[Rfam]
RNA: SAM-I/IV (S-adenosyl methionine) riboswitch aptamer
RNA sequence: AAUAUGCAUUAAGAGUGAGAUUAAUUUCUCCUCCAACCUGCCAACUCCGGCAAGGUGGAAAAGUGAUGCGGUUAUUCAACAAUAAAGGAGUAGAAA
Numbered sequence: 001a002a003u004a005u006g007c008a009u010u011a012a013g014a015g016u017g018a019g020a021u022u023a024a025u026u027u028c029u030c031c032u033c034c035a036a037c038c039u040g041c042c043a044a045c046u047c048c049g050g051c052a053a054g055g056u057g058g059a060a061a062a063g064u065g066a067u068g069c070g071g072u073u074a075u076u077c078a079a080c081a082a083u084a085a086a087g088g089a090g091u092a093g094a095a096a
Base pairs, nucleotide, nucleotide: 006069007068008067009066010065015031017030018029019028020027032059033058034057037055038054039053040051041050042049046090048088071080072079073078